[Rfam]
RNA sequence: GAUGAUAUACCAAAAUGGUUUAUUUUAUUUUGAUGUAGAAAUUGAAUUUGAUAUAGUGCGUAGAUAACAAAUAAAAGUUCUUUAUCAAAUAAAAAUUAGUAUAACUAUACCUUAUUUCAAAAUGAAGGAGGUAUAGUACCAUCUCAAUAUUU
Numbered sequence: 001g002a003u004g005a006u007a008u009a010c011c012a013a014a015a016u017g018g019u020u021u022a023u024u025u026u027a028u029u030u031u032g033a034u035g036u037a038g039a040a041a042u043u044g045a046a047u048u049u050g051a052u053a054u055a056g057u058g059c060g061u062a063g064a065u066a067a068c069a070a071a072u073a074a075a076a077g078u079u080c081u082u083u084a085u086c087a088a089a090u091a092a093a094a095a096u097u098a099g100u101a102u103a104a105c106u107a108u109a110c111c112u113u114a115u116u117u118c119a120a121a122a123u124g125a126a127g128g129a130g131g132u133a134u135a136g137u138a139c140c141a142u143c144u145c146a147a148u149a150u151u152u
Stems, first nucleotide, its partner, number of pairs: 001143004011032008034103004040097004046090008055081002058078002104137010116126004